[Rfam]
The record is a 101-nucleotide sequence from Anaerocolumna jejuensis, which matches "Guanidine-I riboswitch aptamer" in Rfam. Pairs were carried over by alignment from the consensus structure. Gene Ontology term of the family: regulation of gene expression.
RNA sequence: GUAUAAGUUUUAUAGGGUUCCGCAAUACAAACCGUAUUGGUCAGGUCCGAGAUAAAACGCGCAGUUAACUGCGUUCACGGAAGGAUAAAAGCCUGGGAGAU
Numbered sequence: 001g002u003a004u005a006a007g008u009u010u011u012a013u014a015g016g017g018u019u020c021c022g023c024a025a026u027a028c029a030a031a032c033c034g035u036a037u038u039g040g041u042c043a044g045g046u047c048c049g050a051g052a053u054a055a056a057a058c059g060c061g062c063a064g065u066u067a068a069c070u071g072c073g074u075u076c077a078c079g080g081a082a083g084g085a086u087a088a089a090a091g092c093c094u095g096g097g098a099g100a101u
Stems, first nucleotide, its partner, number of pairs: 007058006015048002020045002022042001023039006059074006076096001078099001082094003
Dot-bracket structure: ......((((((..((...(((((((((.....))))))..).)).))....))))))((((((....)))))).(.[...(((.......))).)..]..